[Rfam]
RNA sequence: UUUAAAAUAAAGAUUCAACCGAAGACAAUAGGUGCGCAAGCUUAAUACCCUAUCGAGGUUAUACAUUACAGUAUGAAUUCAUGCUCUCUUUGUAUGCCUCGGCGCAAAGAGAGUUUUUUUUAUUGAUAG
Numbered sequence: 001u002u003u004a005a006a007a008u009a010a011a012g013a014u015u016c017a018a019c020c021g022a023a024g025a026c027a028a029u030a031g032g033u034g035c036g037c038a039a040g041c042u043u044a045a046u047a048c049c050c051u052a053u054c055g056a057g058g059u060u061a062u063a064c065a066u067u068a069c070a071g072u073a074u075g076a077a078u079u080c081a082u083g084c085u086c087u088c089u090u091u092g093u094a095u096g097c098c099u100c101g102g103c104g105c106a107a108a109g110a111g112a113g114u115u116u117u118u119u120u121u122a123u124u125g126a127u128a129g
Base pairs, nucleotide, nucleotide: 028053029052030051031050032049034041035040083114084113085112086111087110088109089108090107091106092105
Background
This 129-nucleotide RNA sequence from Alkalibacter saccharofermentans belongs to the Rfam family "Ribosomal protein L10 leader". The literature on the family includes a 1994 paper in Prog Nucleic Acid Res Mol Biol by Zengel and Lindahl, "Diverse mechanisms for regulating ribosomal protein synthesis in Escherichia coli". The match comes from Rfam's covariance-model search (76 bits). About the family: This family is a putative r-protein leader autoregulatory structure found in B. subtilis and other low-GC Gram-positive bacteria. The family's consensus secondary structure was predicted with CMfinder.